[Rfam]
RNA sequence: AAAAACGGGUCGUGACACAAAGCGAACUAUUCUUUCGCCUUUUACUAAAGAAUACCGUGUGUUUGUUACGAUAAGUUGCAUAUGCCUAUUUUUGGAGAGGUUUUCCCAUUUAGAAAAUU
Numbered sequence: 001a002a003a004a005a006c007g008g009g010u011c012g013u014g015a016c017a018c019a020a021a022g023c024g025a026a027c028u029a030u031u032c033u034u035u036c037g038c039c040u041u042u043u044a045c046u047a048a049a050g051a052a053u054a055c056c057g058u059g060u061g062u063u064u065g066u067u068a069c070g071a072u073a074a075g076u077u078g079c080a081u082a083u084g085c086c087u088a089u090u091u092u093u094g095g096a097g098a099g100g101u102u103u104u105c106c107c108a109u110u111u112a113g114a115a116a117a118u119u
Base pairs, nucleotide, nucleotide: 004077005076006075014063015062016061017060018059019058028054029053030052031051032050033049034048035047096119100118101117102116103115104114105113

Rfam assigns this 119-nucleotide RNA sequence from Centaurea solstitialis to the family "U5 spliceosomal RNA". On this family, see Zwieb, Nucleic Acids Res 1997: "The uRNA database". It scores 72 bits against the family's covariance model. The base pairs follow the family's consensus structure, which is taken from published work.